[Rfam]
RNA sequence: CAUUUAAGAAGAGGAGCAUAACCCAGGUAGAUUAUUCGUGGAUCCCGUAAUCCAAAACGAAUGAUUCAGGGGGAGUUAUGCCGAGAUGGGUAAGUUUCCGGGAAUUUAUCACAUCGGUUGUUAUAUCAAUGCUGAGCACUGAUAUUAGGUUGAAUCCUAACAACUGUCAUUAAAGCCUGAUGGUAUUAAUGAAGAGCUUCUAAGGUU
Numbered sequence: 001c002a003u004u005u006a007a008g009a010a011g012a013g014g015a016g017c018a019u020a021a022c023c024c025a026g027g028u029a030g031a032u033u034a035u036u037c038g039u040g041g042a043u044c045c046c047g048u049a050a051u052c053c054a055a056a057a058c059g060a061a062u063g064a065u066u067c068a069g070g071g072g073g074a075g076u077u078a079u080g081c082c083g084a085g086a087u088g089g090g091u092a093a094g095u096u097u098c099c100g101g102g103a104a105u106u107u108a109u110c111a112c113a114u115c116g117g118u119u120g121u122u123a124u125a126u127c128a129a130u131g132c133u134g135a136g137c138a139c140u141g142a143u144a145u146u147a148g149g150u151u152g153a154a155u156c157c158u159a160a161c162a163a164c165u166g167u168c169a170u171u172a173a174a175g176c177c178u179g180a181u182g183g184u185a186u187u188a189a190u191g192a193a194g195a196g197c198u199u200c201u202a203a204g205g206u207u
Base pairs, nucleotide, nucleotide: 007201008200009199010198011197016081017080018079019078020077021076022075024073030066031065032064033063034062035061036060037059085115086114087113088112089110090109091108092107093106094105095104096103116165117164118163119162120161121160122159123158167192168191169190170189171188172187173186
RNA: Lysine riboswitch aptamer
Organism: Vibrio rumoiensis